Source information
Shown here is a 71-nucleotide RNA sequence from Rhinopomastus cyanomelas, a member of the family "mir-451 microRNA precursor family". Lineage of the source: Eukaryota > Metazoa > Dipnotetrapodomorpha > Aves > Rhinopomastus. Rfam 15.1 lists 658 matches to the family in 500 species. On this family, see Patrick et al., Genes Dev 2010: "Defective erythroid differentiation in miR-451 mutant mice mediated by 14-3-3zeta".
[Rfam]
RNA sequence: GCCUGACCAUCGGCAGAACCGUUACCAUUACUAAACUCAGUAAUGGUAACGGUUUCCCCGCUGGUCAUCGA
Numbered sequence: 001g002c003c004u005g006a007c008c009a010u011c012g013g014c015a016g017a018a019c020c021g022u023u024a025c026c027a028u029u030a031c032u033a034a035a036c037u038c039a040g041u042a043a044u045g046g047u048a049a050c051g052g053u054u055u056c057c058c059c060g061c062u063g064g065u066c067a068u069c070g071a
Stems, first nucleotide, its partner, number of pairs: 007064003011060003017054004022049011